[Rfam]
RNA sequence: UUAUCACCGAUGAUGGAGCAUAGUAGUUGAGUAACACAUGGAAAGAGAAGAAAUGCCCUGGGCUGAAAGCAUUUCUGCAUGAAAACUUAACGAAUGAACACUCCGAAGGUUUCCCUCUGAAAACAGCGAUUGCUAUAGUAGGAGCGGAACGUAGACAGGCGUUAACUGUUUGAGCGGGAAGACUUUUUAGUCUUUCAACUAGGGUGGCACCACGGGAUUCUAUAACUCUCGUCCCUUGU
Numbered sequence: 001u002u003a004u005c006a007c008c009g010a011u012g013a014u015g016g017a018g019c020a021u022a023g024u025a026g027u028u029g030a031g032u033a034a035c036a037c038a039u040g041g042a043a044a045g046a047g048a049a050g051a052a053a054u055g056c057c058c059u060g061g062g063c064u065g066a067a068a069g070c071a072u073u074u075c076u077g078c079a080u081g082a083a084a085a086c087u088u089a090a091c092g093a094a095u096g097a098a099c100a101c102u103c104c105g106a107a108g109g110u111u112u113c114c115c116u117c118u119g120a121a122a123a124c125a126g127c128g129a130u131u132g133c134u135a136u137a138g139u140a141g142g143a144g145c146g147g148a149a150c151g152u153a154g155a156c157a158g159g160c161g162u163u164a165a166c167u168g169u170u171u172g173a174g175c176g177g178g179a180a181g182a183c184u185u186u187u188u189a190g191u192c193u194u195u196c197a198a199c200u201a202g203g204g205u206g207g208c209a210c211c212a213c214g215g216g217a218u219u220c221u222a223u224a225a226c227u228c229u230c231g232u233c234c235c236u237u238g239u
Base pairs, nucleotide, nucleotide: 007109008108015104016103017102018101026091027090028089029088030087031086038080039079040078049076050075051074052073053072054071055070056069112148113147114146115144116143117142118141150161151160152159177196178195179194180193181192182191183190201236202235203234204233212232213231214230215229216228
The family of this 239-nucleotide RNA sequence from Bacillus sp. cl95 is "T-box leader". The match comes from Rfam's covariance-model search (116 bits). Rfam links the family to the GO term tRNA binding.